Rfam assigns this 36-nucleotide sequence to the family "DUF805b RNA".
[Rfam]
RNA sequence: AAGGAAGAAUCCGAAAAUCCUCAAAAAGAGUAGGAA
Numbered sequence: 001a002a003g004g005a006a007g008a009a010u011c012c013g014a015a016a017a018u019c020c021u022c023a024a025a026a027a028g029a030g031u032a033g034g035a036a
Stems, first nucleotide, its partner, number of pairs: 002021004010035003
Dot-bracket structure: .((((....[[[.....))))...........]]].
Annotation:
Rfam's curators put it in the seed alignment.